[Rfam]
RNA sequence: CGGACAGAAUCGAAAAGUGCGAACUGCCCUGGUACAGGCGAUCCUGAAGUCGAGGCCGAAAAUAGCUUGGGAAGACAAAGUCAUGGAAACGGAUGGCUAGUAGGCUGAGACGACGGGAGAAGCUGCAAUCCAGACUUAGUAGCAUGUCGCGGCUCGUUGGGAGGCCGGUCUUAAGGCCCGCGGUGGAGACUUCACUUAUUCUUCGGGAUGGUGUUGAUCCGCGGUGUCCCGGCCGGCGCCCGACGGUGUUGUACGGACGGAGCCCCAUUCCGCGUCUUCGCGGCAAGGUUCCGUCGGUCCGCGGCACUUCUGCUUUCGAUCCCUAUCCGUCCCGUCUUGAAACACGG
Number, nucleotide and partner (000 for none) at each position: 001c329002g328003g327004a326005c000006a324007g323008a000009a320010u319011c318012g317013a000014a000015a000016a000017g097018u000019g000020c096021g000022a094023a000024c092025u091026g090027c000028c000029c000030u000031g000032g000033u000034a000035c000036a000037g000038g000039c000040g000041a000042u000043c000044c000045u000046g000047a000048a000049g000050u000051c000052g000053a000054g000055g000056c000057c000058g000059a000060a000061a000062a000063u000064a000065g000066c000067u000068u000069g000070g000071g000072a000073a000074g000075a000076c000077a000078a000079a000080g000081u000082c000083a000084u000085g000086g000087a000088a000089a000090c026091g025092g024093a000094u022095g000096g020097c017098u000099a000100g000101u000102a309103g308104g307105c000106u000107g000108a000109g000110a000111c000112g000113a000114c000115g000116g000117g000118a000119g000120a000121a000122g000123c000124u000125g000126c000127a000128a000129u000130c000131c000132a000133g000134a000135c000136u000137u000138a000139g000140u000141a000142g000143c000144a000145u000146g000147u000148c000149g000150c000151g000152g000153c000154u000155c000156g000157u000158u000159g000160g000161g000162a000163g000164g000165c000166c000167g000168g000169u000170c000171u000172u000173a000174a000175g000176g000177c000178c000179c000180g000181c000182g000183g000184u000185g000186g000187a000188g000189a000190c000191u000192u000193c000194a000195c000196u000197u000198a000199u000200u000201c000202u000203u000204c000205g000206g000207g000208a000209u000210g000211g000212u000213g000214u000215u000216g000217a000218u000219c000220c000221g000222c000223g000224g000225u000226g000227u000228c000229c000230c000231g000232g000233c000234c000235g000236g000237c000238g000239c000240c000241c000242g000243a000244c000245g000246g000247u000248g000249u000250u000251g000252u000253a000254c000255g000256g000257a000258c000259g000260g000261a000262g000263c000264c000265c000266c000267a000268u000269u000270c000271c000272g000273c000274g000275u000276c000277u000278u000279c000280g000281c000282g000283g000284c000285a000286a000287g000288g000289u000290u000291c000292c000293g000294u000295c000296g000297g000298u000299c000300c000301g000302c000303g000304g000305c000306a000307c104308u103309u102310c000311u000312g000313c000314u000315u000316u000317c012318g011319a010320u009321c000322c000323c007324u006325a000326u004327c003328c002329g001330u000331c000332c347333c346334g345335u344336c000337u000338u000339g000340a000341a000342a000343c000344a335345c334346g333347g332
The family of this 347-nucleotide part of an RNA from Oryza brachyantha is "Eukaryotic large subunit ribosomal RNA". Pairs were carried over by alignment from the consensus structure, which is taken from published work. NCBI's taxonomy places the organism under Eukaryota, Magnoliopsida, Poales, Oryzoideae, Oryza.